Shown here is a 61-nucleotide sequence from Ziziphus jujuba, a member of the family "Plastid-psbN 5UTR RNA". NCBI's taxonomy places the organism under Eukaryota, Gunneridae, rosids, Rhamnaceae, Ziziphus jujuba. Pairs were carried over by alignment from the consensus structure, which was predicted with LocARNA. The match comes from Rfam's covariance-model search (77 bits). From the family's description: Plastid psbN is a non-coding RNA (ncRNA) recognised in plastids. It is annotated as a cis-regulatory element. On this family, see Richter et al., Plant Commun 2023: "Retrograde signaling in plants: A critical review focusing on the GUN pathway and beyond".
[Rfam]
RNA sequence: UGUGAUACCCAUCAAAGGAGUAGCUCCCCACCUAGGAGCUACUUUAUCAUAUUCUAAAUUC
Numbered sequence: 001u002g003u004g005a006u007a008c009c010c011a012u013c014a015a016a017g018g019a020g021u022a023g024c025u026c027c028c029c030a031c032c033u034a035g036g037a038g039c040u041a042c043u044u045u046a047u048c049a050u051a052u053u054c055u056a057a058a059u060u061c
Base pairs, nucleotide, nucleotide: 017045018044019043020042021041022040023039024038025037026036027035